[Rfam]
RNA sequence: GCGUUCAGUGGAGAUGGCAUUCCUCCCUCAACUGUCGGCGUUCGCUGACUGAUGAUGCCUACGAGCAC
Numbered sequence: 001g002c003g004u005u006c007a008g009u010g011g012a013g014a015u016g017g018c019a020u021u022c023c024u025c026c027c028u029c030a031a032c033u034g035u036c037g038g039c040g041u042u043c044g045c046u047g048a049c050u051g052a053u054g055a056u057g058c059c060u061a062c063g064a065g066c067a068c
Base pairs, nucleotide, nucleotide: 010026011025012024013023016059017058018057019056020055021054034049035048036047037046038045039044
Source information
Shown here is a 68-nucleotide RNA sequence from Paraburkholderia sp. DHOC27, a member of the family "Fluoride riboswitch aptamer (crcB RNA motif)". NCBI's taxonomy places the organism under Bacteria, Pseudomonadati, Pseudomonadota, Betaproteobacteria, Paraburkholderia.